[Rfam]
RNA sequence: CCGCACAAAAUUCGGGUUUUGCGACAAUAAAACCGUGAUAUAUCGGUUCGUUGUCGACGAAACCUGCAAAAUGUGCGG
Numbered sequence: 001c002c003g004c005a006c007a008a009a010a011u012u013c014g015g016g017u018u019u020u021g022c023g024a025c026a027a028u029a030a031a032a033c034c035g036u037g038a039u040a041u042a043u044c045g046g047u048u049c050g051u052u053g054u055c056g057a058c059g060a061a062a063c064c065u066g067c068a069a070a071a072u073g074u075g076c077g078g
Stems, first nucleotide, its partner, number of pairs: 001078006013066009031048004
The family of this 78-nucleotide RNA sequence from Pieris macdunnoughi is "mir-981 microRNA precursor family". A search with the family's covariance model found it, with a score of 71 bits. NCBI's taxonomy places the organism under Eukaryota, Pancrustacea, Insecta, Pieridae, Pieris. Rfam links the family to the GO terms miRNA-mediated post-transcriptional gene silencing and RISC complex.